Shown here is a 331-nucleotide RNA from Janthinobacterium sp. KBS0711, a member of the family "permuted transfer-messenger RNA". Rfam describes the family as follows. Bacterial tmRNA, also known as 10Sa RNA or SsrA, is named for its dual tRNA and mRNA-like properties. Its role is to liberate the mRNA from a stalled ribosome. To accomplish this part of the tmRNA is used as a reading frame that ends in a translation stop signal. The organism belongs to Janthinobacterium, within Bacteria.

RNA sequence: GUAUGUAGAACUGUCUGUAGAGUGCUUGCGGACGCGGGGGUUGUGCGGGACUUCGGCGGGCACAGCCCGGCGCCGCACAACCGGCUUGCGCAUGCCGGCGCAAGCCUCUCCGAUUCGUCUGCCUCAAGCGAUUCGAAGAUGCCUCGUUCCUUACCGCGAAUGCAGCAUGCAAGAGUGGGCAGAUUGCGCUACAAUGAAGGUUCUGUGGGGACGACCUGGUUUCGACGUGGGUUGCAAAGCAGCGCAGGGCAUACCGAGGGCGGGCUACCUCGUAAAUACAACCUGAAAAAACUUAACUGCAAACGAUAACUCGUACGCACUGGCAGCUUAA
Dot-bracket structure: (((((.........(((......(((.(((....((((...........................)))).((.(.((((............................................................................................................................))))..).))............))).))).......))).......)))))((((..........))))...........................................................
It scores 56 bits against the family's covariance model.